[Rfam]
RNA: T-box leader
Organism: Bacillus gobiensis
RNA sequence: AAAAAUGCGAUGAAGAAGAAUAGUACACAUUGACAACGUUUAAAGAGAGCCUGCGGUGCUGGAAGCUGGUAGCGAAGUAAUGUGGAAUGGGCUUUGGAGCAGCUGACUGAACUUGUAGUAGGCUCAGCCGGAGAGGACUCCGUUACAAACAUUAAGGUGAUUUCACGUGUUGAAAUAAAUCAGGGUGGUACCGCGGUUCAUUCGUCCCUUUU
Numbered sequence: 001a002a003a004a005a006u007g008c009g010a011u012g013a014a015g016a017a018g019a020a021u022a023g024u025a026c027a028c029a030u031u032g033a034c035a036a037c038g039u040u041u042a043a044a045g046a047g048a049g050c051c052u053g054c055g056g057u058g059c060u061g062g063a064a065g066c067u068g069g070u071a072g073c074g075a076a077g078u079a080a081u082g083u084g085g086a087a088u089g090g091g092c093u094u095u096g097g098a099g100c101a102g103c104u105g106a107c108u109g110a111a112c113u114u115g116u117a118g119u120a121g122g123c124u125c126a127g128c129c130g131g132a133g134a135g136g137a138c139u140c141c142g143u144u145a146c147a148a149a150c151a152u153u154a155a156g157g158u159g160a161u162u163u164c165a166c167g168u169g170u171u172g173a174a175a176u177a178a179a180u181c182a183g184g185g186u187g188g189u190a191c192c193g194c195g196g197u198u199c200a201u202u203c204g205u206c207c208c209u210u211u212u
Stems, first nucleotide, its partner, number of pairs: 007100002015095004026084006038073003049070003053066002103127004107122002129142003160176006182209004193205004